[Rfam]
RNA sequence: GAGAAGAAUCUGUGAAGCUCAGGAGGGAUAGCGCCAUAGAUCUCUCUCCAUUACAUUUACACUCUCUUGAUCUUGAUCAUGCAUGAGGAGGUAACUAGACUAGAGAGAUACAUAGCGCUAUCCAUCCUGAGUUUCAUCUGAUCUUCUU
Numbered sequence: 001g002a003g004a005a006g007a008a009u010c011u012g013u014g015a016a017g018c019u020c021a022g023g024a025g026g027g028a029u030a031g032c033g034c035c036a037u038a039g040a041u042c043u044c045u046c047u048c049c050a051u052u053a054c055a056u057u058u059a060c061a062c063u064c065u066c067u068u069g070a071u072c073u074u075g076a077u078c079a080u081g082c083a084u085g086a087g088g089a090g091g092u093a094a095c096u097a098g099a100c101u102a103g104a105g106a107g108a109u110a111c112a113u114a115g116c117g118c119u120a121u122c123c124a125u126c127c128u129g130a131g132u133u134u135c136a137u138c139u140g141a142u143c144u145u146c147u148u
Stems, first nucleotide, its partner, number of pairs: 016133009026123009
Dot-bracket structure: ...............(((((((((.(((((((((................................................................................))))))))).)))))))))...............